[Rfam]
RNA sequence: UCCGUCGUGAGACGGAAUCUGAAGGAAGCCGGAGGCAAAACCUCGGUCUGACGAACAGAAAUCACAUACAAGGCAUGGUGGGACGGACGAGCUUGCAUAUCAAAGCGAAAUCCAAUACUGCCCGAGUCACAUCAUGUAAAUGUGGCAGAUAGAUGAGGGGAAAGUUAUCGCU
Numbered sequence: 001u002c003c004g005u006c007g008u009g010a011g012a013c014g015g016a017a018u019c020u021g022a023a024g025g026a027a028g029c030c031g032g033a034g035g036c037a038a039a040a041c042c043u044c045g046g047u048c049u050g051a052c053g054a055a056c057a058g059a060a061a062u063c064a065c066a067u068a069c070a071a072g073g074c075a076u077g078g079u080g081g082g083a084c085g086g087a088c089g090a091g092c093u094u095g096c097a098u099a100u101c102a103a104a105g106c107g108a109a110a111u112c113c114a115a116u117a118c119u120g121c122c123c124g125a126g127u128c129a130c131a132u133c134a135u136g137u138a139a140a141u142g143u144g145g146c147a148g149a150u151a152g153a154u155g156a157g158g159g160g161a162a163a164g165u166u167a168u169c170g171c172u
Stems, first nucleotide, its partner, number of pairs: 001016006028172001030170003035165002041158005046150005062145006073137003077133004082128002085113003091106004
RNA: Group II catalytic intron D1-D4-3
Organism: Paenibacillus yonginensis